RNA: Plastid-rpl20 3UTR RNA
Organism: Musa balbisiana
RNA sequence: ACAGAAUUCCCCGGAGAAGGAACUCCGGGAAAAUAGAAUAAAAAUAAAUUAAGAAUAGUAAUAGGAAGAAACGAAUAUGUUUCAAU
Numbered sequence: 001a002c003a004g005a006a007u008u009c010c011c012c013g014g015a016g017a018a019g020g021a022a023c024u025c026c027g028g029g030a031a032a033a034u035a036g037a038a039u040a041a042a043a044a045u046a047a048a049u050u051a052a053g054a055a056u057a058g059u060a061a062u063a064g065g066a067a068g069a070a071a072c073g074a075a076u077a078u079g080u081u082u083c084a085a086u
Base pairs, nucleotide, nucleotide: 007031008030010029011028012027013026014025015024016023069082070081071080072079